[Rfam]
RNA sequence: GUAAAAGAGUGUGAAAAACACUCUCACCAAAAACCUAAGGGUUCCUACGUUAAGUUAAUCUGCGUAGGGUUAGUCGGUUCCUAAGGCAAGUCCGUAUAGGAGUAGUCGAUGGCAAUCAGGUUAAUAUUCCUGAACCUCUUAAGUGUGACGAGUUUUGUAUUUGUAUAGGGCUUAUUGGAUUGUCUUAUGCUUAAAAGGAGCUCCAGGAAAUAACGCUUAUAUUCAUGAGGCCGUACCGUAAACCGACACUGGUAGGUGAGUAGAGUAUACUAAGGUGU
Numbered sequence: 001g002u003a004a005a006a007g008a009g010u011g012u013g014a015a016a017a018a019c020a021c022u023c024u025c026a027c028c029a030a031a032a033a034c035c036u037a038a039g040g041g042u043u044c045c046u047a048c049g050u051u052a053a054g055u056u057a058a059u060c061u062g063c064g065u066a067g068g069g070u071u072a073g074u075c076g077g078u079u080c081c082u083a084a085g086g087c088a089a090g091u092c093c094g095u096a097u098a099g100g101a102g103u104a105g106u107c108g109a110u111g112g113c114a115a116u117c118a119g120g121u122u123a124a125u126a127u128u129c130c131u132g133a134a135c136c137u138c139u140u141a142a143g144u145g146u147g148a149c150g151a152g153u154u155u156u157g158u159a160u161u162u163g164u165a166u167a168g169g170g171c172u173u174a175u176u177g178g179a180u181u182g183u184c185u186u187a188u189g190c191u192u193a194a195a196a197g198g199a200g201c202u203c204c205a206g207g208a209a210a211u212a213a214c215g216c217u218u219a220u221a222u223u224c225a226u227g228a229g230g231c232c233g234u235a236c237c238g239u240a241a242a243c244c245g246a247c248a249c250u251g252g253u254a255g256g257u258g259a260g261u262a263g264a265g266u267a268u269a270c271u272a273a274g275g276u277g278u
Stems, first nucleotide, its partner, number of pairs: 006024006025277004033257004039237002044068006053061002075233004080112002085107003089103001091101003116133005136229003140225001141218006150203004156196001158194001243252002259271004
RNA: Bacterial large subunit ribosomal RNA, nucleotides 1290 to 1567